[Rfam]
RNA: Small nucleolar RNA Z43
Nucleotides: 104
Stems, first nucleotide, its partner, number of pairs: 001104004048062001049057001
Number, partner (000 for none) and nucleotide at each position: 001104g002103g003102g004101c005000c006000g007000u008000g009000a010000c011000g012000a013000u014000u015000c016000u017000a018000u019000c020000a021000g022000a023000a024000a025000g026000g027000u028000c029000u030000c031000g032000u033000u034000c035000g036000u037000c038000g039000u040000a041000a042000a043000u044000g045000g046000c047000u048062g049057u050000u051000u052000u053000c054000a055000a056000a057049g058000g059000c060000c061000u062048u063000u064000g065000c066000c067000g068000a069000c070000c071000a072000u073000c074000c075000u076000g077000g078000u079000a080000u081000a082000u083000c084000a085000c086000c087000a088000c089000c090000c091000a092000u093000a094000a095000u096000u097000c098000c099000g100000a101004g102003u103002c104001c